Shown here is an 84-nucleotide RNA from Cohnella lupini, a member of the family "tRNA". Lineage of the source: Bacteria > Bacillati > Bacillota > Bacilli > Cohnella. The base pairs follow the family's consensus structure, which is taken from published work. The family's RNA type in Rfam is transfer RNA. The match comes from Rfam's covariance-model search (53 bits).

RNA sequence: GCGGCCAUGGCGGAAUUGGCAGACGCGCUAGAUUCAGGUUCUAGUGGUGUAACAGCCGUGGAGGUUCGAGUCCUCUUGGCCGCA
Numbered sequence: 001g002c003g004g005c006c007a008u009g010g011c012g013g014a015a016u017u018g019g020c021a022g023a024c025g026c027g028c029u030a031g032a033u034u035c036a037g038g039u040u041c042u043a044g045u046g047g048u049g050u051a052a053c054a055g056c057c058g059u060g061g062a063g064g065u066u067c068g069a070g071u072c073c074u075c076u077u078g079g080c081c082g083c084a
Base pairs, nucleotide, nucleotide: 001083002082003081004080005079006078007077010026011025012024028044029043030042031041032040060076061075062074063073064072